[Rfam]
Shown here is a 46-nucleotide RNA from Allacma fusca, a member of the family "Histone 3' UTR stem-loop". By type it is a cis-regulatory element. The family has 50 seed sequences and 44,596 matches in Rfam 15.1. About the family: The mRNAs of metazoan histone genes lack a poly-A tail. 3' end processing occurs at a site between a highly conserved stem-loop (modelled by this family) and a purine rich region around 20 nts downstream (the histone downstream element, or HDE). The stem-loop is bound by a 31 kDa stem-loop binding protein (SLBP - also termed the histone hairpin binding protein, or HBP). The organism belongs to Allacma, within Eukaryota.
RNA sequence: CCAACGGCCCUUUUAAGGGCCACAAAAAUUUCCUAAGAGCAAUAAU
Numbered sequence: 001c002c003a004a005c006g007g008c009c010c011u012u013u014u015a016a017g018g019g020c021c022a023c024a025a026a027a028a029u030u031u032c033c034u035a036a037g038a039g040c041a042a043u044a045a046u
Base pairs, nucleotide, nucleotide: 006021007020008019009018010017011016